[Rfam]
Rfam assigns this 70-nucleotide RNA sequence from Aedes aegypti to the family "mir-iab-4 microRNA precursor family". It scores 87 bits against the family's covariance model. For this family Rfam cites "Evolutionary flux of canonical microRNAs and mirtrons in Drosophila" (Berezikov et al., Nat Genet, 2010). The family's consensus secondary structure was predicted with RNAalifold. The organism belongs to Stegomyia, within Eukaryota.
Nucleotides: 070
Stems, first nucleotide, its partner, number of pairs: 002069002005066002009063012022050004027046002030043002034039001
Number, partner (000 for none) and nucleotide at each position: 001000c002069u003068c004000c005066u006065g007000u008000u009063a010062c011061g012060u013059a014058u015057a016056c017055u018054g019053a020052a021000g022050g023049u024048a025047u026000a027046c028045c029000g030043g031042a032000u033000a034039g035000a036000u037000a038000g039034c040000a041000c042031u043030c044000a045028g046027g047025a048024u049023a050022c051000a052020u053019u054018c055017a056016g057015u058014a059013u060012a061011c062010g063009u064000u065006c066005a067000u068003g069002a070000a